[Rfam]
RNA sequence: CUUUUAUUAAACUUUGAUUGUCAUGUGUUACAUUUUUAUUGGAUGUUAACGUUAAUUAAGUGUAUAAAAUUAACGUCCAAUAAAAAUAUGACAUGUAAUAGUCAAUAUUC
Number, nucleotide and partner (000 for none) at each position: 001c000002u000003u000004u000005u000006a000007u000008u000009a000010a000011a000012c000013u000014u000015u000016g000017a000018u000019u000020g099021u098022c000023a096024u000025g094026u093027g000028u000029u090030a089031c000032a000033u086034u085035u084036u083037u000038a081039u080040u079041g000042g000043a000044u000045g000046u000047u000048a000049a000050c000051g000052u000053u000054a000055a000056u000057u000058a000059a000060g000061u000062g000063u000064a000065u000066a000067a000068a000069a000070u000071u000072a000073a000074c000075g000076u000077c000078c000079a040080a039081u038082a000083a036084a035085a034086a033087u000088a000089u030090g029091a000092c000093a026094u025095g000096u023097a000098a021099u020100a000101g000102u000103c000104a000105a000106u000107a000108u000109u000110c000